[Rfam]
RNA sequence: CUGGCUUCUCGUAUAGUUUGGCUGCCAGAGUAAUACUAGUUAUCCUGGUAGCAUUCUUUGAUUGGGAAGCAACACAAAAAUGUUCCCCUCGCUAUCCACUUGCGCAUGUGAUUUGCAUUUUGGACGUUGGGGAUCUACAUUC
Numbered sequence: 001c002u003g004g005c006u007u008c009u010c011g012u013a014u015a016g017u018u019u020g021g022c023u024g025c026c027a028g029a030g031u032a033a034u035a036c037u038a039g040u041u042a043u044c045c046u047g048g049u050a051g052c053a054u055u056c057u058u059u060g061a062u063u064g065g066g067a068a069g070c071a072a073c074a075c076a077a078a079a080a081u082g083u084u085c086c087c088c089u090c091g092c093u094a095u096c097c098a099c100u101u102g103c104g105c106a107u108g109u110g111a112u113u114u115g116c117a118u119u120u121u122g123g124a125c126g127u128u129g130g131g132g133a134u135c136u137a138c139a140u141u142c
Base pairs, nucleotide, nucleotide: 001069002068005065006064009061010060011057013055021052022051023050024049025048026047027046030045032043082135084133085132086131087130088129090126091125095124096123097122098121104116105115106114

Shown here is a 142-nucleotide sequence from Amborella trichopoda, a member of the family "Small nucleolar RNA snoR136". It scores 51 bits against the family's covariance model. The family's RNA type in Rfam is H/ACA-box small nucleolar RNA.